The family of this 81-nucleotide RNA from Hemibagrus wyckioides is "mir-26 microRNA precursor family". NCBI's taxonomy places the organism under Eukaryota, Eumetazoa, Vertebrata, Clupeocephala, Hemibagrus. Rfam 15.1 lists 2,251 matches to the family in 645 species.
RNA sequence: CCGUUACCUGGUUCAAGUAAUCCAGGAUAGGCUCUGUGUAUCAUACUCGGCCUGUUCUUGAUUACUUGUACUGGGUUGCGG
Numbered sequence: 001c002c003g004u005u006a007c008c009u010g011g012u013u014c015a016a017g018u019a020a021u022c023c024a025g026g027a028u029a030g031g032c033u034c035u036g037u038g039u040a041u042c043a044u045a046c047u048c049g050g051c052c053u054g055u056u057c058u059u060g061a062u063u064a065c066u067u068g069u070a071c072u073g074g075g076u077u078g079c080g081g
Stems, first nucleotide, its partner, number of pairs: 002080003007075006014068009024058010